[Rfam]
RNA sequence: UUAUAGCCCCGAUUGGAGCAAGUAUCCUUUUGCUGCUGUUCCAAGUCUGUUUUCGUAAUUUGAAAAAGAGUCUUGAACAGCAGAAAAGAUACUGUGGAAAGCGGGAAUAAGC
Numbered sequence: 001u002u003a004u005a006g007c008c009c010c011g012a013u014u015g016g017a018g019c020a021a022g023u024a025u026c027c028u029u030u031u032g033c034u035g036c037u038g039u040u041c042c043a044a045g046u047c048u049g050u051u052u053u054c055g056u057a058a059u060u061u062g063a064a065a066a067a068g069a070g071u072c073u074u075g076a077a078c079a080g081c082a083g084a085a086a087a088g089a090u091a092c093u094g095u096g097g098a099a100a101g102c103g104g105g106a107a108u109a110a111g112c
Stems, first nucleotide, its partner, number of pairs: 009104003013100002018095002024090003030085002033083009
Flavo-1 RNA: a 112-nucleotide RNA from Flavobacterium humi. The family's RNA type in Rfam is small RNA.